[Rfam]
RNA sequence: AAUGAUUCAUAAGCGCCCGGACUGUUUUGGACGAAGAUAAAACAGUUGACGAGGAGGAGGUUUAUCGAACAUCGGCGGAUACCUCCCGGUUGUAUGUCACGACCGCAAGCGUGUACUGAAAACGAAGAGGCGACUUUUCGUACAAAGAACACACAUUGGCACAU
Dot-bracket structure: ...................((((((((.(........).))))))))........(((((....((((...))))......)))))((((((.......))))))...(.((((........(((((((....)))))))........)))).)..........
Numbered sequence: 001a002a003u004g005a006u007u008c009a010u011a012a013g014c015g016c017c018c019g020g021a022c023u024g025u026u027u028u029g030g031a032c033g034a035a036g037a038u039a040a041a042a043c044a045g046u047u048g049a050c051g052a053g054g055a056g057g058a059g060g061u062u063u064a065u066c067g068a069a070c071a072u073c074g075g076c077g078g079a080u081a082c083c084u085c086c087c088g089g090u091u092g093u094a095u096g097u098c099a100c101g102a103c104c105g106c107a108a109g110c111g112u113g114u115a116c117u118g119a120a121a122a123c124g125a126a127g128a129g130g131c132g133a134c135u136u137u138u139c140g141u142a143c144a145a146a147g148a149a150c151a152c153a154c155a156u157u158g159g160c161a162c163a164u
Stems, first nucleotide, its partner, number of pairs: 020047008029038001056086005065075004087105006109154001111152004123140007